Source information: The record is an 89-nucleotide RNA sequence from Nitrosovibrio tenuis, which matches "c-di-GMP-I-GGC riboswitch aptamer" in Rfam.
[Rfam]
RNA sequence: CGGAACAAAGCCAAACCCGUUGCGAGGCGGGGACGGAAAGCCGCGGACCUCCUUAUAAAGUAAAGGCGGAGGUAGCCGGGUUGCUCCAA
Number, nucleotide and partner (000 for none) at each position: 001c000002g000003g086004a085005a000006c000007a000008a000009a000010g000011c036012c035013a000014a000015a000016c031017c030018c029019g028020u027021u026022g000023c000024g000025a000026g021027g020028c019029g018030g017031g016032g000033a000034c075035g012036g011037a000038a000039a082040g081041c080042c079043g000044c078045g077046g076047a073048c072049c071050u070051c069052c068053u000054u000055a000056u000057a000058a000059a000060g000061u000062a000063a000064a000065g000066g000067c000068g052069g051070a050071g049072g048073u047074a000075g034076c046077c045078g044079g042080g041081u040082u039083g000084c000085u004086c003087c000088a000089a000

A search with the family's covariance model found it, with a score of 68 bits. The source organism's lineage runs through Bacteria, Pseudomonadati, Pseudomonadota, Betaproteobacteria and Nitrosovibrio.